[Rfam]
RNA sequence: AUAGUCGGCUCGCUCUUCGGUGAGUGCGAGACAGAUGAGGCCGCGGCCGUGCUUCGCCAUGAAGUUGAUGGCUUCCGGCGUGACGUGCUCGGCGGCGAGCGUGA
Number, nucleotide and partner (000 for none) at each position: 001a000002u000003a000004g057005u056006c000007g054008g053009c028010u000011c026012g025013c024014u023015c022016u000017u000018c000019g000020g000021u000022g015023a014024g013025u012026g011027c000028g009029a000030g000031a000032c000033a000034g000035a050036u049037g048038a000039g047040g000041c045042c000043g000044c000045g041046g000047c039048c037049g036050u035051g000052c000053u008054u007055c000056g005057c004058c000059a000060u000061g000062a000063a000064g000065u000066u104067g000068a102069u101070g100071g096072c095073u000074u000075c092076c091077g090078g088079c087080g086081u000082g000083a000084c000085g000086u080087g079088c078089u000090c077091g076092g075093c000094g000095g072096c071097g000098a000099g000100c070101g069102u068103g000104a066
Vibrio RNA AS9: a 104-nucleotide sequence from Paracidobacterium acidisoli.
By type it is an antisense RNA.
NCBI's taxonomy places the organism under Bacteria, Acidobacteriota, Terriglobales, Acidobacteriaceae, Paracidobacterium.